[Rfam]
This 65-nucleotide RNA sequence from Salvator merianae belongs to the Rfam family "Small nucleolar RNA SNORD42". The literature on the family includes a 2002 paper in Mol Cell Biol by Galardi et al., "Purified box C/D snoRNPs are able to reproduce site-specific 2'-O-methylation of target RNA in vitro". A search with the family's covariance model found it, with a score of 62 bits. It is annotated as a C/D-box small nucleolar RNA.
RNA sequence: GUGCAAAUGAUGGAAACACUUUCGAACUGAGCAAAGUGAUGUUUUCAAAGGAACCACUGAUGCAC
Numbered sequence: 001g002u003g004c005a006a007a008u009g010a011u012g013g014a015a016a017c018a019c020u021u022u023c024g025a026a027c028u029g030a031g032c033a034a035a036g037u038g039a040u041g042u043u044u045u046c047a048a049a050g051g052a053a054c055c056a057c058u059g060a061u062g063c064a065c
Stems, first nucleotide, its partner, number of pairs: 001065005
Overview: The family's consensus secondary structure was predicted with PFOLD.